[Rfam]
RNA sequence: CCAAAGGCUCUUUUCAGAGCCAUUUAACAUUUCAAAAAAAGGUGUUG
Number, nucleotide and partner (000 for none) at each position: 001c000002c000003a000004a000005a000006g021007g020008c019009u018010c017011u016012u000013u000014u000015c000016a011017g010018a009019g008020c007021c006022a000023u000024u000025u000026a000027a000028c000029a000030u000031u000032u000033c000034a000035a000036a000037a000038a000039a000040a000041g000042g000043u000044g000045u000046u000047g000
Histone 3' UTR stem-loop: a 47-nucleotide RNA from Hipposideros armiger. Rfam's curators write: The mRNAs of metazoan histone genes lack a poly-A tail. 3' end processing occurs at a site between a highly conserved stem-loop (modelled by this family) and a purine rich region around 20 nts downstream (the histone downstream element, or HDE). The stem-loop is bound by a 31 kDa stem-loop binding protein (SLBP - also termed the histone hairpin binding protein, or HBP). Together with U7 snRNA binding of the HDE, SLBP binding nucleate s the formation of the processing complex. The histone 3' UTR stem-loop is also involved in nucleocytoplasmic transport of the mRNA, and in stability regulation and translation efficiency in the cytoplasm.